[Rfam]
Shown here is a 166-nucleotide RNA from Carnobacterium antarcticum, a member of the family "M-box riboswitch aptamer (ykoK leader)".
The base pairs follow the family's consensus structure.
It scores 148 bits against the family's covariance model.
The literature on the family includes a 2004 paper in Proc Natl Acad Sci U S A by Barrick et al., "New RNA motifs suggest an expanded scope for riboswitches in bacterial genetic control".
Rfam links the family to the GO terms response to magnesium ion and regulation of gene expression.

RNA sequence: UAAAGCUUCUGUUAGGUGAGGCUCCUAUAUGGAAAAACGCUGCUGCCCAAAAACGUCGAGAGACACCAAUGGGUCAACAGGAAUGAUCGAAUUAAGGUCAUUUUUAAUGUAGCUGAUGAAUAAUCUACGCCAUAUAGUGCUAAAACUCGACGAUGGAGAAGGAAUA
Number, nucleotide and partner (000 for none) at each position: 001u000002a000003a000004a000005g000006c161007u160008u159009c158010u157011g151012u150013u095014a000015g147016g146017u145018g000019a000020g141021g140022c139023u000024c000025c137026u136027a135028u134029a133030u132031g131032g130033a000034a000035a000036a000037a000038c000039g113040c112041u111042g110043c109044u000045g074046c073047c072048c071049a070050a000051a000052a000053a000054c000055g064056u063057c062058g000059a000060g000061a000062g057063a056064c055065a000066c000067c000068a000069a000070u049071g048072g047073g046074u045075c000076a000077a000078c000079a000080g104081g103082a102083a101084u000085g000086a098087u097088c096089g000090a000091a000092u000093u000094a000095a013096g088097g087098u086099c000100a000101u083102u082103u081104u080105u000106a000107a000108u000109g043110u042111a041112g040113c039114u000115g125116a124117u123118g000119a000120a000121u000122a000123a117124u116125c115126u000127a000128c000129g000130c032131c031132a030133u029134a028135u027136a026137g025138u000139g022140c021141u020142a000143a000144a000145a017146c016147u015148c000149g000150a012151c011152g000153a000154u000155g000156g000157a010158g009159a008160a007161g006162g000163a000164a000165u000166a000